[Rfam]
RNA sequence: ACCGGACCCGACCCUGAUCGGGUGGCUCGACCCGGCGCCUAUCCCCGGGACAACC
Numbered sequence: 001a002c003c004g005g006a007c008c009c010g011a012c013c014c015u016g017a018u019c020g021g022g023u024g025g026c027u028c029g030a031c032c033c034g035g036c037g038c039c040u041a042u043c044c045c046c047g048g049g050a051c052a053a054c055c
Stems, first nucleotide, its partner, number of pairs: 006023006031049005

Rfam assigns this 55-nucleotide RNA sequence from Limoniibacter endophyticus to the family "sul1 RNA". The family's RNA type in Rfam is riboswitch. NCBI's taxonomy places the organism under Bacteria, Pseudomonadati, Pseudomonadota, Alphaproteobacteria, Limoniibacter. The match comes from Rfam's covariance-model search (54 bits).